Record summary: Shown here is a 139-nucleotide sequence from Corticibacter populi, a member of the family "SAH (S-adenosyl-L-homocysteine) riboswitch aptamer". The family's consensus secondary structure is taken from published work. Lineage of the source: Bacteria > Pseudomonadota > Betaproteobacteria > Burkholderiales > Corticibacter.

[Rfam]
RNA sequence: GUUUUCGAGGAGCGUUGCAGCACCGGCGUGGCCAGAUGGGCCCACUGCCCCGGUGUGAGGCUCGAGAACCGGCGCAGGCCCCAUGCUGCCAUGGCUGGGCGUUUGUCCCCUUCAUCAUUCGCAACGACGCUCAUCCGCG
Number, nucleotide and partner (000 for none) at each position: 001g000002u068003u067004u066005u065006c064007g063008a062009g000010g000011a000012g000013c000014g000015u000016u000017g000018c000019a000020g000021c055022a054023c053024c052025g051026g050027c000028g000029u000030g000031g000032c000033c000034a000035g000036a000037u000038g000039g000040g000041c000042c000043c000044a000045c000046u000047g000048c000049c000050c026051c025052g024053g023054u022055g021056u000057g000058a000059g000060g000061c000062u008063c007064g006065a005066g004067a003068a002069c000070c000071g000072g000073c000074g000075c000076a000077g000078g000079c000080c000081c000082c000083a000084u000085g000086c000087u000088g000089c000090c000091a000092u000093g000094g000095c000096u000097g000098g000099g000100c000101g000102u000103u000104u000105g000106u000107c000108c000109c000110c000111u000112u000113c000114a000115u000116c000117a000118u000119u000120c000121g000122c000123a000124a000125c000126g000127a000128c000129g000130c000131u000132c000133a000134u000135c000136c000137g000138c000139g000